[Rfam]
RNA sequence: GUAGUUCUCAAACUGUGGGGGCACUUUUUGUGCCAUAAAAGAAAUUGCCGCCAGAGUUUGAGUGUUAC
Numbered sequence: 001g002u003a004g005u006u007c008u009c010a011a012a013c014u015g016u017g018g019g020g021g022c023a024c025u026u027u028u029u030g031u032g033c034c035a036u037a038a039a040a041g042a043a044a045u046u047g048c049c050g051c052c053a054g055a056g057u058u059u060g061a062g063u064g065u066u067a068c
Base pairs, nucleotide, nucleotide: 004065005064007062008061009060010059011058012057016053017052018051020049021048022047023046025044026043027042028041
RNA: mir-290 microRNA precursor family